This 106-nucleotide RNA from Pelusios castaneus belongs to the Rfam family "mir-2968 microRNA precursor family". The family has 12 seed sequences and 469 matches in Rfam 15.1. A reference for the family is Gunaratne et al. (2011), "Song exposure regulates known and novel microRNAs in the zebra finch auditory forebrain", BMC Genomics.
RNA sequence: ACUGCCCUGAGAGUUGCUGUCCUCCAGGUCGCUCUGGCAGCCCUCGUCAUUGAGCGAGCCUUGCUUGGUGACCUUGGGCGAGAGCAGCUUGACCAGCUCCCCUAGC
Numbered sequence: 001a002c003u004g005c006c007c008u009g010a011g012a013g014u015u016g017c018u019g020u021c022c023u024c025c026a027g028g029u030c031g032c033u034c035u036g037g038c039a040g041c042c043c044u045c046g047u048c049a050u051u052g053a054g055c056g057a058g059c060c061u062u063g064c065u066u067g068g069u070g071a072c073c074u075u076g077g078g079c080g081a082g083a084g085c086a087g088c089u090u091g092a093c094c095a096g097c098u099c100c101c102c103u104a105g106c
Stems, first nucleotide, its partner, number of pairs: 002105003007096003011090008020081002022078003026074008036065005043058005